[Rfam]
RNA sequence: GCACCAGCUAGGCCGGGCUGCAAUCCGACCGAAAAGCGGGUUUCUUCAACUCGCCUGCUGGUGCUCCUUAAAUUGAAGU
Numbered sequence: 001g002c003a004c005c006a007g008c009u010a011g012g013c014c015g016g017g018c019u020g021c022a023a024u025c026c027g028a029c030c031g032a033a034a035a036g037c038g039g040g041u042u043u044c045u046u047c048a049a050c051u052c053g054c055c056u057g058c059u060g061g062u063g064c065u066c067c068u069u070a071a072a073u074u075g076a077a078g079u
Base pairs, nucleotide, nucleotide: 001064002063003062004061005060006059007058008057011030012029014027015026016025017024036054037053038052039051040050045078046077049074